Annotation: A member of the RNA family "Flavo-1 RNA" from Flavobacterium psychrophilum, 143 nucleotides long. The match comes from Rfam's covariance-model search (49 bits). The source organism's lineage runs through Bacteria, Pseudomonadati, Flavobacteriia, Flavobacterium and Flavobacterium psychrophilum. The base pairs follow the family's consensus structure, which is taken from published work. The family's RNA type in Rfam is small RNA.
[Rfam]
RNA sequence: UUUUGCCCCUGAUGGCAAUGGAAAGCCUUUUGAGAGAAAAUGUAUUUUUUCUUGAAGCAGAAAAGCGACCAAAGGAAGCUCUUUCUGGUUUGUAGAAAAAAGCAUUUUGCGAAAAAAGCUUGUAAUGUACAGCAGGAAUUGGC
Numbered sequence: 001u002u003u004u005g006c007c008c009c010u011g012a013u014g015g016c017a018a019u020g021g022a023a024a025g026c027c028u029u030u031u032g033a034g035a036g037a038a039a040a041u042g043u044a045u046u047u048u049u050u051c052u053u054g055a056a057g058c059a060g061a062a063a064a065g066c067g068a069c070c071a072a073a074g075g076a077a078g079c080u081c082u083u084u085c086u087g088g089u090u091u092g093u094a095g096a097a098a099a100a101a102g103c104a105u106u107u108u109g110c111g112a113a114a115a116a117a118g119c120u121u122g123u124a125a126u127g128u129a130c131a132g133c134a135g136g137a138a139u140u141g142g143c
Stems, first nucleotide, its partner, number of pairs: 009135003013131002018126002023121004029116003